[Rfam]
RNA sequence: GAGGUGAAAUGCGGCGUGUAGUUGAGAAAGAUCUCGCCCCGCGCCUGGUCGAUCGCGUGAAACAGCGGGUUCCAGUCGAACACCGGCAGCAUGUAGCCCGGCAGCGUGUUGGCGACGAACAUCUUGCCCGAGGCGAUCAUGUUGGUGCGCG
Dot-bracket structure: .((((....(.(((.......))).)....)))).((..((........))...))........(((.((((.....))))...(.(((((((...((((((((.((.(((....)))..)).))).))).))....))))))).).))).